The family of this 83-nucleotide RNA sequence from Flavobacterium sangjuense is "c-di-GMP-I riboswitch aptamer". The literature on the family includes a 2007 paper in Nucleic Acids Res by Weinberg et al., "Identification of 22 candidate structured RNAs in bacteria using the CMfinder comparative genomics pipeline".
RNA sequence: AUUGUGCCUUGGCAGAUGUUGUGUGAACAUACAGGCGCAAAGUUAUUGGUCAUUCCGAUGAAUUAUGAUGGCGAAUUGCUGAU
Numbered sequence: 001a002u003u004g005u006g007c008c009u010u011g012g013c014a015g016a017u018g019u020u021g022u023g024u025g026a027a028c029a030u031a032c033a034g035g036c037g038c039a040a041a042g043u044u045a046u047u048g049g050u051c052a053u054u055c056c057g058a059u060g061a062a063u064u065a066u067g068a069u070g071g072c073g074a075a076u077u078g079c080u081g082a083u
Stems, first nucleotide, its partner, number of pairs: 012038002017033003020029003041077004047073002049069003052063004

Description:
Rfam links the family to the GO term cyclic-di-GMP binding.